SAM riboswitch aptamer (S box leader): a 108-nucleotide RNA from Clostridium kluyveri.
Pairs were carried over by alignment from the consensus structure, which is taken from published work.
RNA sequence: UCCUUAUCAAGAGAAACUUAGGGAAUGGCCCGAUGAAGUUUCAGCAACCACAUUUUAAUUUUAUGUAAGGUGCUAAGUCCAUCAGAACAUAGUUCUGGAAGAUGAGGU
Dot-bracket structure: .(((((((....(((((...(((.[[[[)))......)))))((((.((((((.........))))..))))))...(]]]]((((((...))))))..)))))))).
Numbered sequence: 001u002c003c004u005u006a007u008c009a010a011g012a013g014a015a016a017c018u019u020a021g022g023g024a025a026u027g028g029c030c031c032g033a034u035g036a037a038g039u040u041u042c043a044g045c046a047a048c049c050a051c052a053u054u055u056u057a058a059u060u061u062u063a064u065g066u067a068a069g070g071u072g073c074u075a076a077g078u079c080c081a082u083c084a085g086a087a088c089a090u091a092g093u094u095c096u097g098g099a100a101g102a103u104g105a106g107g108u
Stems, first nucleotide, its partner, number of pairs: 002107007013042005021031003025082004043074004048070002050066004078100001083097006